[Rfam]
RNA sequence: CUAUAUGUACCCUGUAGGCUCGAAUUUGUGUAAGCGUCGCAAAAGUCACAAAUUCGUCUCUAGGGGAAUAUAUGGA
Dot-bracket structure: .((((((..(((...(((..((((((((((................))))))))))..)))..)))..))))))..
RNA: mir-10 microRNA precursor family